Overview:
The family of this 76-nucleotide RNA from Schistosoma mansoni is "mir-3492 microRNA precursor family". The family has 2 seed sequences and 21,496 matches in Rfam 15.1.

Nucleotides: 076
Base pairs, nucleotide, nucleotide: 002075003074004073005072006071008069009068012067013066016064017063020061021060022059024058025057026056028054029053030052
Number, partner (000 for none) and nucleotide at each position: 001000a002075g003074c004073u005072u006071u007000c008069u009068g010000a011000a012067u013066c014000c015000g016064u017063g018000c019000a020061g021060a022059g023000a024058u025057u026056u027000c028054g029053u030052c031000a032000g033000a034000c035000a036000c037000c038000a039000a040000c041000c042000c043000a044000u045000u046000a047000g048000a049000g050000c051000u052030g053029a054028u055000c056026a057025g058024g059022c060021u061020u062000c063017c064016a065000a066013g067012a068009c069008g070000u071006g072005a073004a074003g075002c076000u
About this RNA:
The match comes from Rfam's covariance-model search (59 bits). Its family is annotated with RISC complex and miRNA-mediated post-transcriptional gene silencing in the Gene Ontology.